[Rfam]
RNA sequence: GCCGCCCUUCGGGGCGGCUCUCUUUCGGGGAGCGGUCCAUCAGGGCUCCUUCAAGCCCAACGGAAGAAGAAA
Dot-bracket structure: ((((.(((...)))))))........(((((((...........))))))).....................
Numbered sequence: 001g002c003c004g005c006c007c008u009u010c011g012g013g014g015c016g017g018c019u020c021u022c023u024u025u026c027g028g029g030g031a032g033c034g035g036u037c038c039a040u041c042a043g044g045g046c047u048c049c050u051u052c053a054a055g056c057c058c059a060a061c062g063g064a065a066g067a068a069g070a071a072a
Stems, first nucleotide, its partner, number of pairs: 001018004006014003027051007
Description:
This 72-nucleotide RNA sequence from Symbiodinium natans belongs to the Rfam family "L2-Alphaproteobacteria ribosomal protein leader". NCBI's taxonomy places the organism under Eukaryota, Sar, Dinophyceae, Suessiales, Symbiodinium. It is annotated as a cis-regulatory leader.